[Rfam]
FMN riboswitch aptamer (RFN element): a 125-nucleotide RNA sequence from Candidatus Chloroploca asiatica.
NCBI's taxonomy places the organism under Bacteria, Chloroflexia, Chloroflexales, Chloroflexineae, Candidatus Chloroploca.
A search with the family's covariance model found it, with a score of 104 bits.
Gene Ontology term of the family: FMN binding.

RNA sequence: AACGAUCUUCGGGGCAGGGUGAAAUUCCCGAUCGGUGGUAUAGCCCACGAGCGUGUUGCGAGGCACGCAUGAUCCGGUGAAACUCCGGGGCCGACGGUUACAGUCCGGAUGUAAAGAAGAUCCAG
Numbered sequence: 001a002a003c004g005a006u007c008u009u010c011g012g013g014g015c016a017g018g019g020u021g022a023a024a025u026u027c028c029c030g031a032u033c034g035g036u037g038g039u040a041u042a043g044c045c046c047a048c049g050a051g052c053g054u055g056u057u058g059c060g061a062g063g064c065a066c067g068c069a070u071g072a073u074c075c076g077g078u079g080a081a082a083c084u085c086c087g088g089g090g091c092c093g094a095c096g097g098u099u100a101c102a103g104u105c106c107g108g109a110u111g112u113a114a115a116g117a118a119g120a121u122c123c124a125g
Stems, first nucleotide, its partner, number of pairs: 004122007017029003031104002033093002035048004043091002051068003073089005095107003